[Rfam]
RNA sequence: AACCACUCGCUAGGCGAGUGGUUCCAAAGAAGGCUUGUGCCGAUGAUGAAGACAGAAAAACUCCUUUUGUUGUAAAAUAAACUUGCGGUCUGGCAACUGCAAGGGACAACAAAAG
Numbered sequence: 001a002a003c004c005a006c007u008c009g010c011u012a013g014g015c016g017a018g019u020g021g022u023u024c025c026a027a028a029g030a031a032g033g034c035u036u037g038u039g040c041c042g043a044u045g046a047u048g049a050a051g052a053c054a055g056a057a058a059a060a061c062u063c064c065u066u067u068u069g070u071u072g073u074a075a076a077a078u079a080a081a082c083u084u085g086c087g088g089u090c091u092g093g094c095a096a097c098u099g100c101a102a103g104g105g106a107c108a109a110c111a112a113a114a115g
Stems, first nucleotide, its partner, number of pairs: 001023010028044001064115010082103008
The record is a 115-nucleotide sequence from Firmicutes bacterium CAG:94, which matches "STnc490 Hfq binding RNA" in Rfam.
Lineage of the source: Bacteria > Bacillati > Bacillota.
A search with the family's covariance model found it, with a score of 64 bits.
The family's consensus secondary structure was predicted with WAR.